Rfam assigns this 102-nucleotide RNA from Exiguobacterium chiriqhucha to the family "SAM riboswitch aptamer (S box leader)".
The source organism's lineage runs through Bacteria, Bacillati, Caryophanales, Exiguobacterium and Exiguobacterium chiriqhucha.
A search with the family's covariance model found it, with a score of 67 bits.
Pairs were carried over by alignment from the consensus structure, which is taken from published work.
[Rfam]
RNA sequence: UCGAUAUCUCGAGUGAACGAGAGACCUGGCUCUAUGACUUCACAGCAACCUGCUUCGGCAAGGUGCUACUUCCAGCAAGGCAGUUUGCCUUGGCCGAUAUGA
Numbered sequence: 001u002c003g004a005u006a007u008c009u010c011g012a013g014u015g016a017a018c019g020a021g022a023g024a025c026c027u028g029g030c031u032c033u034a035u036g037a038c039u040u041c042a043c044a045g046c047a048a049c050c051u052g053c054u055u056c057g058g059c060a061a062g063g064u065g066c067u068a069c070u071u072c073c074a075g076c077a078a079g080g081c082a083g084u085u086u087g088c089c090u091u092g093g094c095c096g097a098u099a100u101g102a
Base pairs, nucleotide, nucleotide: 001102002101004100005099006098007097008096013043014042015041016040017039021032022031023030026075027074028073029072044067045066046065047064049063050062051060052059053058076092077091078090079089080088081087